[Rfam]
RNA sequence: UUCAUUAGAGGUGGGAAAGGUUUCCCACGCGCUUGCCCAGAAGCAAGUUAACAGAGAUCAGGAUACGCCGCCCUGCUAUGAU
Numbered sequence: 001u002u003c004a005u006u007a008g009a010g011g012u013g014g015g016a017a018a019g020g021u022u023u024c025c026c027a028c029g030c031g032c033u034u035g036c037c038c039a040g041a042a043g044c045a046a047g048u049u050a051a052c053a054g055a056g057a058u059c060a061g062g063a064u065a066c067g068c069c070g071c072c073c074u075g076c077u078a079u080g081a082u
Stems, first nucleotide, its partner, number of pairs: 002081003006078003011028005019069003030054001031048006059075004